RNA sequence: GCCGGCUUGGCACUCGCGAACACCGCGAUUUCACUUAUAACUCGCGGCGUUAGCUCUGUGUCAAACCGGC
Numbered sequence: 001g002c003c004g005g006c007u008u009g010g011c012a013c014u015c016g017c018g019a020a021c022a023c024c025g026c027g028a029u030u031u032c033a034c035u036u037a038u039a040a041c042u043c044g045c046g047g048c049g050u051u052a053g054c055u056c057u058g059u060g061u062c063a064a065a066c067c068g069g070c
Base pairs, nucleotide, nucleotide: 003068004067005066007064008063009062011060012059013058016054017053019051020050021049023047024046025045026044027043028042
Notes:
mir-790 microRNA precursor family: a 70-nucleotide RNA from Caenorhabditis elegans. Lineage of the source: Eukaryota > Rhabditomorpha > Rhabditidae > Peloderinae > Caenorhabditis. For this family Rfam cites "Improved annotation of C. elegans microRNAs by deep sequencing reveals structures associated with processing by Drosha and Dicer" (Warf et al., RNA, 2011). The sequence is in the family's curated seed alignment. Its family is annotated with RISC complex and miRNA-mediated post-transcriptional gene silencing in the Gene Ontology.